[Rfam]
RNA sequence: AUCAACUUCAUACCGUUUCCUUAUAUAUCUAUGGUGAUAUGGUCCAUAAGUCUCUACCUAGCUGCCGUAAAUGGCUAGACUAUAAGGAAAGUCAGAUGAUUU
Numbered sequence: 001a002u003c004a005a006c007u008u009c010a011u012a013c014c015g016u017u018u019c020c021u022u023a024u025a026u027a028u029c030u031a032u033g034g035u036g037a038u039a040u041g042g043u044c045c046a047u048a049a050g051u052c053u054c055u056a057c058c059u060a061g062c063u064g065c066c067g068u069a070a071a072u073g074g075c076u077a078g079a080c081u082a083u084a085a086g087g088a089a090a091g092u093c094a095g096a097u098g099a100u101u102u
Stems, first nucleotide, its partner, number of pairs: 018088008030048005058078007

The record is a 102-nucleotide sequence from Falsibacillus albus, which matches "Purine riboswitch aptamer" in Rfam.
A search with the family's covariance model found it, with a score of 83 bits.
The family has 133 seed sequences and 4,097 matches in Rfam 15.1.